[Rfam]
RNA sequence: CGGUAUUGAAGCCAAGGCGGAGCUCGACCGCAAACCGAAGUAAUGAUUAAAUUCAUCGAUGACGAAAAAGACAACUAUGGAGUCGAGUCGAUUUGCAGAAUUCUGCCAAUCGCUCCA
Numbered sequence: 001c002g003g004u005a006u007u008g009a010a011g012c013c014a015a016g017g018c019g020g021a022g023c024u025c026g027a028c029c030g031c032a033a034a035c036c037g038a039a040g041u042a043a044u045g046a047u048u049a050a051a052u053u054c055a056u057c058g059a060u061g062a063c064g065a066a067a068a069a070g071a072c073a074a075c076u077a078u079g080g081a082g083u084c085g086a087g088u089c090g091a092u093u094u095g096c097a098g099a100a101u102u103c104u105g106c107c108a109a110u111c112g113c114u115c116c117a
Base pairs, nucleotide, nucleotide: 017031018030019029020028078117079116080115081114082113089112090111092109093108095106096105097104098103